[Rfam]
RNA: Guanidine-II riboswitch aptamer (mini-ykkC)
RNA sequence: CCGGGGACGACCCCGGUGCGCGACAUGAGGUUUCGGGGACGGCCCCG
Numbered sequence: 001c002c003g004g005g006g007a008c009g010a011c012c013c014c015g016g017u018g019c020g021c022g023a024c025a026u027g028a029g030g031u032u033u034c035g036g037g038g039a040c041g042g043c044c045c046c047g
Base pairs, nucleotide, nucleotide: 001016002015003014004013005012006011034047035046036045037044038043